RNA sequence: UGGGGUCAUCAGCUGUAACAGCAACUCCAUGUGGACUGUGCAGCUAUUUCCAGUGGAGAUGCUGUUACUUUUGAUGGCUAC
Numbered sequence: 001u002g003g004g005g006u007c008a009u010c011a012g013c014u015g016u017a018a019c020a021g022c023a024a025c026u027c028c029a030u031g032u033g034g035a036c037u038g039u040g041c042a043g044c045u046a047u048u049u050c051c052a053g054u055g056g057a058g059a060u061g062c063u064g065u066u067a068c069u070u071u072u073g074a075u076g077g078c079u080a081c
Base pairs, nucleotide, nucleotide: 009074010073011072015068016067017066018065019064020063021062022061025058026057027056028055029054030053032052033051034050